[Rfam]
RNA: FMN riboswitch aptamer (RFN element)
Nucleotides: 128
Stems, first nucleotide, its partner, number of pairs: 003126008017029003031108002033098002035060004055096002063074003078094005100111003
Number, partner (000 for none) and nucleotide at each position: 001000a002000u003126u004125a005124a006123c007122c008121u009120u010119c011000a012000g013000g014000g015000a016000c017029u018028g019027g020000u021000g022000a023000a024000a025000u026000u027019c028018c029017g030000u031108a032107c033098c034097g035060g036059c037058g038057g039000u040000a041000a042000g043000g044000u045000c046000a047000u048000a049000u050000u051000c052000u053000a054000a055096g056095c057038c058037c059036g060035c061000g062000a063074g064073c065072c066000c067000u068000u069000a070000a071000g072065g073064g074063c075000u076000g077000a078094u079093c080092c081091g082090g083000u084000g085000u086000a087000a088000u089000u090082c091081c092080g093079g094078a095056g096055c097034c098033g099000a100111c101110a102109g103000u104000a105000a106000a107032g108031u109102c110101u111100g112000g113000a114000u115000g116000g117000g118000a119010g120009a121008a122007g123006g124005u125004u126003g127000u128000u